[Rfam]
Nucleotides: 119
Base pairs, nucleotide, nucleotide: 049081050080051079052078053077054076058074059073060072061071062070095106096105097104098103
Number, partner (000 for none) and nucleotide at each position: 001000g002000c003000g004000a005000g006000a007000c008000g009000c010000g011000u012000g013000g014000c015000c016000c017000a018000a019000g020000c021000g022000a023000c024000g025000g026000g027000u028000g029000c030000g031000a032000c033000c034000g035000a036000u037000a038000a039000a040000c041000u042000g043000g044000a045000c046000g047000a048000c049081g050080g051079u052078a053077c054076g055000u056000a057000g058074c059073c060072g061071g062070g063000c064000g065000c066000a067000g068000c069000u070062c071061c072060c073059g074058g075000g076054c077053g078052u079051a080050c081049c082000a083000c084000c085000a086000a087000u088000g089000a090000u091000c092000a093000g094000c095106c096105a097104g098103c099000a100000g101000c102000c103098g104097c105096u106095g107000c108000a109000a110000c111000c112000c113000c114000a115000g116000g117000g118000a119000g